A member of the RNA family "MIR397 microRNA precursor family" from Castanea mollissima, 124 nucleotides long.
[Rfam]
RNA sequence: CAAAAAAACAUGAUUGAGUGCAGCGCUAAUGAAAUUGUCCCACAACACUGGCCCAUGAUUCUCCCUAUAGAAGAUAGGAAACAGACACGCACUUUCAUCAACGCUGCACUCAAUGAUGUUUCUU
Numbered sequence: 001c002a003a004a005a006a007a008a009c010a011u012g013a014u015u016g017a018g019u020g021c022a023g024c025g026c027u028a029a030u031g032a033a034a035u036u037g038u039c040c041c042a043c044a045a046c047a048c049u050g051g052c053c054c055a056u057g058a059u060u061c062u063c064c065c066u067a068u069a070g071a072a073g074a075u076a077g078g079a080a081a082c083a084g085a086c087a088c089g090c091a092c093u094u095u096c097a098u099c100a101a102c103g104c105u106g107c108a109c110u111c112a113a114u115g116a117u118g119u120u121u122c123u124u
Base pairs, nucleotide, nucleotide: 006121007120008119009118010117011116013114014113015112016111017110018109019108020107021106022105023104024103025102027100030097031096032095033094034093

Lineage of the source: Eukaryota > Euphyllophyta > Magnoliopsida > Fagaceae > Castanea. The literature on the family includes a 2009 paper in BMC Genomics by Mica et al., "High throughput approaches reveal splicing of primary microRNA transcripts and tissue specific expression of mature microRNAs in Vitis vinifera".